[Rfam]
RNA sequence: UGAAUCCAGCAUAGUAAAGUUUAACCAACAACUAUUAGUUAGCCUUGGAGGGAGACAGGCAACUGUCUCCUUUAAGCGUAGGCAAACGAGUUAGCAGGCCGAAAGCGAUAGCUGAAGGGAUUGAGCCACGAAAUUCGAAUUAGGAAGGCUGAUGUAGUUGUCUGUACAGAAAGCAACACUCUGCUAAUCGCUUUGGUGAGAAUAGCAGAGCUUCCUCGGGGUCGGAGACCU
Numbered sequence: 001u002g003a004a005u006c007c008a009g010c011a012u013a014g015u016a017a018a019g020u021u022u023a024a025c026c027a028a029c030a031a032c033u034a035u036u037a038g039u040u041a042g043c044c045u046u047g048g049a050g051g052g053a054g055a056c057a058g059g060c061a062a063c064u065g066u067c068u069c070c071u072u073u074a075a076g077c078g079u080a081g082g083c084a085a086a087c088g089a090g091u092u093a094g095c096a097g098g099c100c101g102a103a104a105g106c107g108a109u110a111g112c113u114g115a116a117g118g119g120a121u122u123g124a125g126c127c128a129c130g131a132a133a134u135u136c137g138a139a140u141u142a143g144g145a146a147g148g149c150u151g152a153u154g155u156a157g158u159u160g161u162c163u164g165u166a167c168a169g170a171a172a173g174c175a176a177c178a179c180u181c182u183g184c185u186a187a188u189c190g191c192u193u194u195g196g197u198g199a200g201a202a203u204a205g206c207a208g209a210g211c212u213u214c215c216u217c218g219g220g221g222u223c224g225g226a227g228a229c230c231u
Stems, first nucleotide, its partner, number of pairs: 011035004019029003022199001024197002042083004046078002048073011122225001123223001125222003129218002142216006148174003153168004179210008188201002